[Rfam]
RNA sequence: AAUUAUGUUCGUAGAACAAAGAGAAGCAAAGUUAUUCUAUACUCGAUAAGUACCAAUACGCAAUGGAG
Numbered sequence: 001a002a003u004u005a006u007g008u009u010c011g012u013a014g015a016a017c018a019a020a021g022a023g024a025a026g027c028a029a030a031g032u033u034a035u036u037c038u039a040u041a042c043u044c045g046a047u048a049a050g051u052a053c054c055a056a057u058a059c060g061c062a063a064u065g066g067a068g
Stems, first nucleotide, its partner, number of pairs: 003021002006018005043066002050059003
Shown here is a 68-nucleotide RNA sequence from Actinidia chinensis, a member of the family "Plastid-clpP 5UTR RNA". From the family's description: Plastid clpP is a non-coding RNA (ncRNA) recognised in plastids. It was found in the prime untranslated region (5UTR) of a protease complex subunit (clpP) in plastids, suggesting a posible cis-regulatory function. NCBI's taxonomy places the organism under Eukaryota, Streptophytina, Euphyllophyta, Actinidia, Actinidia chinensis. A search with the family's covariance model found it, with a score of 83 bits.